Source information: Rfam assigns this 49-nucleotide sequence from Phreatobacter cathodiphilus to the family "Guanidine-II riboswitch aptamer (mini-ykkC)". Taxonomically the source falls in Phreatobacter (Bacteria, Pseudomonadati, Pseudomonadota, Alphaproteobacteria).
RNA sequence: GGGCGGGGACGACCCCGCCGUCGGGAUGGUUGCGCCGGGGACGACCCCG
Numbered sequence: 001g002g003g004c005g006g007g008g009a010c011g012a013c014c015c016c017g018c019c020g021u022c023g024g025g026a027u028g029g030u031u032g033c034g035c036c037g038g039g040g041a042c043g044a045c046c047c048c049g
Base pairs, nucleotide, nucleotide: 002019003018004017005016006015007014008013036049037048038047039046040045
Source information:
The family's consensus secondary structure is taken from published work. A search with the family's covariance model found it, with a score of 41 bits.